[Rfam]
The family of this 333-nucleotide sequence from Xylaria hypoxylon is "Group I catalytic intron". The family has 12 seed sequences and 5,602 matches in Rfam 15.1.
RNA sequence: AUUAUAUAAUUAGAGUAGCUAGUUAUUGUCAGAAUGAACUUCUGGCUACUAGAAACCAUCAAAUUGCGGGAAAGUCCUAAAGCAAUUUCAACCAAACAAAAGUGGUAACACAAUUUGUGGCACAGGUAACGACUCGUGGUAUGGUAAAAUCGAAAUUGAUUAUCUCCGUUUUUAGUUCAUGAACUAAAAAUAUACAGGUAAAUGGAUAAUCCGCAGCCAAGCACCGACUAUUCUUAUUAUAAAAACCCAAAAGAACAAAGGUGUGCAGUUCAUCGACUAAAUGUUGGUUGGCGCAAGCUUAAGAUAUAGUCAAGCCCCUUUCGAGAGAAUGCA
Numbered sequence: 001a002u003u004a005u006a007u008a009a010u011u012a013g014a015g016u017a018g019c020u021a022g023u024u025a026u027u028g029u030c031a032g033a034a035u036g037a038a039c040u041u042c043u044g045g046c047u048a049c050u051a052g053a054a055a056c057c058a059u060c061a062a063a064u065u066g067c068g069g070g071a072a073a074g075u076c077c078u079a080a081a082g083c084a085a086u087u088u089c090a091a092c093c094a095a096a097c098a099a100a101a102g103u104g105g106u107a108a109c110a111c112a113a114u115u116u117g118u119g120g121c122a123c124a125g126g127u128a129a130c131g132a133c134u135c136g137u138g139g140u141a142u143g144g145u146a147a148a149a150u151c152g153a154a155a156u157u158g159a160u161u162a163u164c165u166c167c168g169u170u171u172u173u174a175g176u177u178c179a180u181g182a183a184c185u186a187a188a189a190a191u192a193u194a195c196a197g198g199u200a201a202a203u204g205g206a207u208a209a210u211c212c213g214c215a216g217c218c219a220a221g222c223a224c225c226g227a228c229u230a231u232u233c234u235u236a237u238u239a240u241a242a243a244a245a246c247c248c249a250a251a252a253g254a255a256c257a258a259a260g261g262u263g264u265g266c267a268g269u270u271c272a273u274c275g276a277c278u279a280a281a282u283g284u285u286g287g288u289u290g291g292c293g294c295a296a297g298c299u300u301a302a303g304a305u306a307u308a309g310u311c312a313a314g315c316c317c318c319u320u321u322c323g324a325g326a327g328a329a330u331g332c333a
Base pairs, nucleotide, nucleotide: 001016002015003014005012024034026032054289055288056287057286058285060283061282065215066214067213068212069211070210075206076205077204216269217268221264222263223262224261229257231255232254233253234252235251273312275311276310277309278308279307291298292297318331320329321328322327

Annotation:
Rfam links the family to the GO term Group I intron splicing. Group I catalytic introns are large self-splicing ribozymes.